[Rfam]
RNA sequence: AGAUUGAUGAUGAAAACAACUCUCUGAAGAUGGUGAAUAACUCAUACAAAUGGCAAUCAGAGGUCC
Number, nucleotide and partner (000 for none) at each position: 001a000002g065003a064004u063005u062006g000007a000008u000009g000010a000011u000012g000013a000014a000015a000016a000017c000018a000019a000020c000021u000022c000023u000024c000025u000026g000027a000028a000029g000030a000031u000032g000033g000034u000035g000036a000037a000038u000039a000040a000041c000042u000043c000044a000045u000046a000047c000048a000049a000050a000051u000052g000053g000054c000055a000056a000057u000058c000059a000060g000061a000062g005063g004064u003065c002066c000